[Rfam]
RNA sequence: GGUGGCACUGUGAGGAACAAAUUUUGCUAAUGUACCUAUGAGGUCACAAGACCAAUGACUCAAAAUGUCCUUUUCAUUCUGAGUGCCUC
Numbered sequence: 001g002g003u004g005g006c007a008c009u010g011u012g013a014g015g016a017a018c019a020a021a022u023u024u025u026g027c028u029a030a031u032g033u034a035c036c037u038a039u040g041a042g043g044u045c046a047c048a049a050g051a052c053c054a055a056u057g058a059c060u061c062a063a064a065a066u067g068u069c070c071u072u073u074u075c076a077u078u079c080u081g082a083g084u085g086c087c088u089c
Stems, first nucleotide, its partner, number of pairs: 004087005010077005043052003